RNA sequence: CGUGGAUCCCGCGUGGCGUGCAUCCUGUGAAUCCCCCCAGGGCCGGAAGGCAGCAAGGGUCAACGGGCUCUGACGGGUGCGCGGGGUCCCCCAAC
Numbered sequence: 001c002g003u004g005g006a007u008c009c010c011g012c013g014u015g016g017c018g019u020g021c022a023u024c025c026u027g028u029g030a031a032u033c034c035c036c037c038c039a040g041g042g043c044c045g046g047a048a049g050g051c052a053g054c055a056a057g058g059g060u061c062a063a064c065g066g067g068c069u070c071u072g073a074c075g076g077g078u079g080c081g082c083g084g085g086g087u088c089c090c091c092c093a094a095c
Stems, first nucleotide, its partner, number of pairs: 002092001004090002008085006014077001017075003024067005034059003042051003
RNA: Bacterial small signal recognition particle RNA
Organism: Hoyosella subflava